[Rfam]
Source information:
sul1 RNA: a 56-nucleotide sequence from Paracoccus liaowanqingii. The source organism's lineage runs through Bacteria, Pseudomonadati, Pseudomonadota, Paracoccaceae and Paracoccus. By type it is a riboswitch. Pairs were carried over by alignment from the consensus structure, which is taken from published work. The family has 54 seed sequences and 519 matches in Rfam 15.1.
RNA sequence: CAAGGACCCGGUGAGAGCCCGGGUGGCUGUUCCGGCCGCCAAUCCGCCGGAUAAUC
Numbered sequence: 001c002a003a004g005g006a007c008c009c010g011g012u013g014a015g016a017g018c019c020c021g022g023g024u025g026g027c028u029g030u031u032c033c034g035g036c037c038g039c040c041a042a043u044c045c046g047c048c049g050g051a052u053a054a055u056c
Base pairs, nucleotide, nucleotide: 006024007023008022009021010020011019012017031051032050033049034048035047036046
Dot-bracket structure: .....(((((((....).))))))......((((((.........)))))).....